[Rfam]
The family of this 114-nucleotide RNA from Paenibacillus sp. N3.4 is "azaaromatic riboswitch aptamer (yjdF RNA)". The match comes from Rfam's covariance-model search (78 bits). NCBI's taxonomy places the organism under Bacteria, Bacillota, Caryophanales, Paenibacillaceae, Paenibacillus.

RNA sequence: UAAGAAGAGUGCAAAAACACAGCUCCGGUCGGUAGUCCGGACGCAAGGAAAUACGCUUGUAUUCCUUGUCAGUAACCUUCCCCCCUUGGGAUGUCCAUCACUCUGAUUGGAAAA
Numbered sequence: 001u002a003a004g005a006a007g008a009g010u011g012c013a014a015a016a017a018c019a020c021a022g023c024u025c026c027g028g029u030c031g032g033u034a035g036u037c038c039g040g041a042c043g044c045a046a047g048g049a050a051a052u053a054c055g056c057u058u059g060u061a062u063u064c065c066u067u068g069u070c071a072g073u074a075a076c077c078u079u080c081c082c083c084c085c086u087u088g089g090g091a092u093g094u095c096c097a098u099c100a101c102u103c104u105g106a107u108u109g110g111a112a113a114a
Base pairs, nucleotide, nucleotide: 006104007103008102009101010100011099022042025040026039027038028037043069044068045067046066047065048064049063050062079091080090081089082088